This 96-nucleotide RNA from Triticum aestivum belongs to the Rfam family "Small nucleolar RNA R30/Z108". About the family: snoR30 is a C/D box small nucleolar RNA which acts as a methylation guide for 18S ribosomal RNA in plants. The family's RNA type in Rfam is C/D-box small nucleolar RNA. Gene Ontology terms of the family: RNA processing and nucleolus.

RNA sequence: CGUAGUUGCGACGAGGAUAAUAAGCUCCCUCUUCUGAAAGCAUUGAUGGCAUCGCUGGGAGAAUCAAACCAAUUAAAUAUUGCCAUCACUGAGCAA
Numbered sequence: 001c002g003u004a005g006u007u008g009c010g011a012c013g014a015g016g017a018u019a020a021u022a023a024g025c026u027c028c029c030u031c032u033u034c035u036g037a038a039a040g041c042a043u044u045g046a047u048g049g050c051a052u053c054g055c056u057g058g059g060a061g062a063a064u065c066a067a068a069c070c071a072a073u074u075a076a077a078u079a080u081u082g083c084c085a086u087c088a089c090u091g092a093g094c095a096a
Stems, first nucleotide, its partner, number of pairs: 006096004